[Rfam]
RNA sequence: GUUCCCAAUGAUGGUCCUAUUAUUAACCAUGCUAAUAUUGAAUUGAUGAUGAUUUUUUCGAUGUCACUGAGGGAAUG
Numbered sequence: 001g002u003u004c005c006c007a008a009u010g011a012u013g014g015u016c017c018u019a020u021u022a023u024u025a026a027c028c029a030u031g032c033u034a035a036u037a038u039u040g041a042a043u044u045g046a047u048g049a050u051g052a053u054u055u056u057u058u059c060g061a062u063g064u065c066a067c068u069g070a071g072g073g074a075a076u077g
Stems, first nucleotide, its partner, number of pairs: 001076005
The family of this 77-nucleotide RNA from Amborella trichopoda is "Small nucleolar RNA snoR53Y". A search with the family's covariance model found it, with a score of 53 bits. The family's RNA type in Rfam is C/D-box small nucleolar RNA. The organism belongs to Amborella, within Eukaryota.